The family of this 129-nucleotide RNA sequence from Otolemur garnettii is "U11 spliceosomal RNA". Rfam classes the family as a spliceosomal small nuclear RNA.
[Rfam]
RNA sequence: AAAAAUGUCAUUGGGUGGCACACAUGGGGCAAUUCAACUGCUCUUUGGUGGAAUUGACAUCACGAGAUUUCAGAAGCAUAAUUUUUUUGGUACCUGGGCAUUUGGUGAUUUGUUGGUCCCAGUGUCCUU
Numbered sequence: 001a002a003a004a005a006u007g008u009c010a011u012u013g014g015g016u017g018g019c020a021c022a023c024a025u026g027g028g029g030c031a032a033u034u035c036a037a038c039u040g041c042u043c044u045u046u047g048g049u050g051g052a053a054u055u056g057a058c059a060u061c062a063c064g065a066g067a068u069u070u071c072a073g074a075a076g077c078a079u080a081a082u083u084u085u086u087u088u089g090g091u092a093c094c095u096g097g098g099c100a101u102u103u104g105g106u107g108a109u110u111u112g113u114u115g116g117u118c119c120c121a122g123u124g125u126c127c128u129u
Base pairs, nucleotide, nucleotide: 006020007019008018009017010016021048023047024046026044027043028042029041030040031039049072050071051070052069053068054067055066096127097126098125099124102122103121104120105119107118108117109116110115
Record summary: Lineage of the source: Eukaryota > Metazoa > Euteleostomi > Sarcopterygii > Otolemur.